RNA sequence: GUAGUUGGAUCUUCAAGUUUUUGAAAUGCUUCAAAUUC
Numbered sequence: 001g002u003a004g005u006u007g008g009a010u011c012u013u014c015a016a017g018u019u020u021u022u023g024a025a026a027u028g029c030u031u032c033a034a035a036u037u038c
Stems, first nucleotide, its partner, number of pairs: 003018001005016004020035006
The record is a 38-nucleotide RNA from Trifolium medium, which matches "Plastid psbT antisense RNA" in Rfam. The literature on the family includes a 2023 paper in Plant Commun by Richter et al., "Retrograde signaling in plants: A critical review focusing on the GUN pathway and beyond". Lineage of the source: Eukaryota > Tracheophyta > Magnoliopsida > Trifolieae > Trifolium. Rfam 15.1 lists 1,866 matches to the family in 287 species. It scores 57 bits against the family's covariance model.